[Rfam]
RNA sequence: CCGUGCAGCUGGGGAGUUAGCGGUGCCCUGUACCUGCAAUCCGCUACAGCAGGAGUGAUGCCUUGCCUAGGAUUUAUUCUUGUAGGGCUGCCCUCUAAAAGUGAUGUUGACGUUUGGGUCUUGCGCAAUAGGAACUCGUGAAUCGUGUCAGGUCAGGAAUGAAGCAGCACUAAGCGAACACUCCUGUGUGCCGCGAGGUCGCCUGAGCCGAGUUAACUAUAGAGGUAACGCUUAUGAGAGUUCAUACGAAGUAAGGCGCACGG
Dot-bracket structure: ((((((.(((((((.(((...))).))))...(((((...........))))))))....((((((...(.((..((((((((((...((..(((((...(((((......((((((((((((((((.(((((..((((.....((((....(((....)))....))))...))))....)))))))...))))))...))))))))...))).))..))))).))....))))))))))..)).)...)))))).))))))
Description: This 263-nucleotide sequence from Lachnospiraceae bacterium KM106-2 belongs to the Rfam family "Bacterial large signal recognition particle RNA". The family's consensus secondary structure is taken from published work. It is annotated as a non-coding RNA gene. NCBI's taxonomy places the organism under Bacteria, Bacillota, Clostridia, Lachnospirales, Lachnospiraceae. It scores 190 bits against the family's covariance model. Rfam describes the family as follows. The signal recognition particle (SRP) is a universally conserved ribonucleoprotein involved in the co-translational targeting of proteins to membranes.